[Rfam]
RNA sequence: GAAAGCAGAACGUCUACUAAAAACCGCCACGUCCUAUGGCGAACGUAGACGUCAGCACAUCCUGUGCA
Number, nucleotide and partner (000 for none) at each position: 001g000002a000003a000004a000005g000006c000007a000008g000009a000010a000011c051012g050013u049014c048015u047016a046017c045018u000019a000020a000021a000022a000023a000024c000025c000026g040027c039028c038029a037030c000031g000032u000033c000034c000035u000036a000037u029038g028039g027040c026041g000042a000043a000044c000045g017046u016047a015048g014049a013050c012051g011052u000053c000054a000055g067056c066057a065058c064059a000060u000061c000062c000063u000064g058065u057066g056067c055068a000
Bacillaceae-1 RNA: a 68-nucleotide RNA from Niallia endozanthoxylica. A search with the family's covariance model found it, with a score of 58 bits. The family's RNA type in Rfam is small RNA. The organism belongs to Niallia, within Bacteria.